[Rfam]
RNA sequence: AUACUUUUCUCGGCCUUUUGGCUAAGAUCAAGUGUAGUAUCAGUUCUUAUCAGUUUAAUAUCUGAUAUGUGAGUCAUCGGCUCACACGAUAUUAAAUUUAUUUUUUUUCAUGGGGGAGUUCCCAUCACAGCAGCUUGCUGUUGGGGUUCUCAUGUGUCGCCCUUGCGUUGCACUACUGCAAAGGCCUGGCGCACCCCCA
Numbered sequence: 001a002u003a004c005u006u007u008u009c010u011c012g013g014c015c016u017u018u019u020g021g022c023u024a025a026g027a028u029c030a031a032g033u034g035u036a037g038u039a040u041c042a043g044u045u046c047u048u049a050u051c052a053g054u055u056u057a058a059u060a061u062c063u064g065a066u067a068u069g070u071g072a073g074u075c076a077u078c079g080g081c082u083c084a085c086a087c088g089a090u091a092u093u094a095a096a097u098u099u100a101u102u103u104u105u106u107u108u109c110a111u112g113g114g115g116g117a118g119u120u121c122c123c124a125u126c127a128c129a130g131c132a133g134c135u136u137g138c139u140g141u142u143g144g145g146g147u148u149c150u151c152a153u154g155u156g157u158c159g160c161c162c163u164u165g166c167g168u169u170g171c172a173c174u175a176c177u178g179c180a181a182a183g184g185c186c187u188g189g190c191g192c193a194c195c196c197c198c199a
Base pairs, nucleotide, nucleotide: 008027009026010025012023013022014021015020048067049066050065051064052063053062069085070084071083072082073081074080075079116151117150118149121146122145123144130141131140132139133138154192155191156190157189158188159187161183163181164180165179166178